[Rfam]
RNA sequence: CUGUAAUGAUGAGUUUAGGACACCUUUGCAUUAAUGAUGAAAAGAAUCUAGCAUUUUCUGAGCAGC
Number, nucleotide and partner (000 for none) at each position: 001c065002u064003g063004u062005a000006a000007u000008g000009a000010u000011g000012a000013g000014u000015u000016u000017a000018g000019g000020a000021c000022a000023c000024c000025u000026u000027u000028g000029c000030a000031u000032u000033a000034a000035u000036g000037a000038u000039g000040a000041a000042a000043a000044g000045a000046a000047u000048c000049u000050a000051g000052c000053a000054u000055u000056u000057u000058c000059u000060g000061a000062g004063c003064a002065g001066c000

Small nucleolar RNA SNORD58: a 66-nucleotide RNA from Triplophysa rosa. Rfam describes the family as follows. snoRNA U58 is found in introns 1, 3 and 6 of the ribosomal protein RPL17 gene in humans. Clan: SNORD58 clan. By type it is a C/D-box small nucleolar RNA. Rfam links the family to the GO terms RNA processing and nucleolus. A reference for the family is Galardi et al. (2002), "Purified box C/D snoRNPs are able to reproduce site-specific 2'-O-methylation of target RNA in vitro", Mol Cell Biol. Lineage of the source: Eukaryota > Osteoglossocephalai > Otophysi > Cobitoidei > Triplophysa.